[Rfam]
RNA sequence: UCCAUCUGAUCGCUGAAUUCCCUUUACAGGGAAGCGGGGGACCUAAUCUUUUUGGGGCUAAUCUGGCGCAAAAUGCCGUGUCACGGCAGGGACCGCCAGACGGGUCAGACUUCUUCGAUCCGAGCCCGUCAACUAACCUCGUAAGCGUGGGAGAAGGGGGUG
Numbered sequence: 001u002c003c004a005u006c007u008g009a010u011c012g013c014u015g016a017a018u019u020c021c022c023u024u025u026a027c028a029g030g031g032a033a034g035c036g037g038g039g040g041a042c043c044u045a046a047u048c049u050u051u052u053u054g055g056g057g058c059u060a061a062u063c064u065g066g067c068g069c070a071a072a073a074u075g076c077c078g079u080g081u082c083a084c085g086g087c088a089g090g091g092a093c094c095g096c097c098a099g100a101c102g103g104g105u106c107a108g109a110c111u112u113c114u115u116c117g118a119u120c121c122g123a124g125c126c127c128g129u130c131a132a133c134u135a136a137c138c139u140c141g142u143a144a145g146c147g148u149g150g151g152a153g154a155a156g157g158g159g160g161u162g
Stems, first nucleotide, its partner, number of pairs: 011147004018033005034142006044054002055127003063099006102121004

Description
This 162-nucleotide RNA from Clostridiales bacterium PH28_bin88 belongs to the Rfam family "c-di-AMP riboswitch aptamer (ydaO/yuaA leader)". Gene Ontology terms of the family: regulation of gene expression and cyclic-di-AMP binding.